A member of the RNA family "Glycine riboswitch aptamer" from Caenimonas koreensis, 120 nucleotides long. A search with the family's covariance model found it, with a score of 62 bits.
[Rfam]
RNA sequence: GUUCACCUUGCUGGAGAGAGGCUUCAACCAUCAGGCUGGAGUCCACCGAAGGAGCAAACCUGCAGCGCAUGCGCAUGGCUGCAGGUGAAUCUCUCAGGUAAAGCGGACAGCAGGGGCAAC
Numbered sequence: 001g002u003u004c005a006c007c008u009u010g011c012u013g014g015a016g017a018g019a020g021g022c023u024u025c026a027a028c029c030a031u032c033a034g035g036c037u038g039g040a041g042u043c044c045a046c047c048g049a050a051g052g053a054g055c056a057a058a059c060c061u062g063c064a065g066c067g068c069a070u071g072c073g074c075a076u077g078g079c080u081g082c083a084g085g086u087g088a089a090u091c092u093c094u095c096a097g098g099u100a101a102a103g104c105g106g107a108c109a110g111c112a113g114g115g116g117c118a119a120c
Stems, first nucleotide, its partner, number of pairs: 006115008020043007045099003048095002052093003058086009